[Rfam]
RNA sequence: GUCUUCUCAUUGAGCUCCUUUCUGUCGCUCUGUGGCAGUUACGGAUUCGCACGAGAAGAAGAGACAAUUCACAGAGCUAGCAUUAUUUUGCCUCUUCAGAGGUAUAUGCUGCUGUUUUGUGAGACAUUU
Dot-bracket structure: ..((((((.....(((((...(((((.......)))))....)))...))..))))))..........((((((..............(..(......)..)..............)))))).......
Numbered sequence: 001g002u003c004u005u006c007u008c009a010u011u012g013a014g015c016u017c018c019u020u021u022c023u024g025u026c027g028c029u030c031u032g033u034g035g036c037a038g039u040u041a042c043g044g045a046u047u048c049g050c051a052c053g054a055g056a057a058g059a060a061g062a063g064a065c066a067a068u069u070c071a072c073a074g075a076g077c078u079a080g081c082a083u084u085a086u087u088u089u090g091c092c093u094c095u096u097c098a099g100a101g102g103u104a105u106a107u108g109c110u111g112c113u114g115u116u117u118u119g120u121g122a123g124a125c126a127u128u129u
Stems, first nucleotide, its partner, number of pairs: 003058006014050002016045003022038005069122006089102001092099001
Shown here is a 129-nucleotide sequence from Pipistrellus kuhlii, a member of the family "Small nucleolar RNA SNORA75". U23 belongs to the H/ACA class of snoRNAs. snoRNAs bind a number of proteins (including dyskerin, Gar1p and Nop10p in the case of the H/ACA class) to form snoRNP complexes. This class are thought to guide the sites of modification of uridines to pseudouridines by forming direct base pairing interactions with substrate RNAs. Rfam classes the family as an H/ACA-box small nucleolar RNA. Rfam links the family to the GO terms RNA processing and nucleolus. Pairs were carried over by alignment from the consensus structure, which was predicted with PFOLD. A search with the family's covariance model found it, with a score of 108 bits. For this family Rfam cites "The family of box ACA small nucleolar RNAs is defined by an evolutionarily conserved secondary structure and ubiquitous sequence elements essential for RNA accumulation" (Ganot et al., Genes Dev, 1997).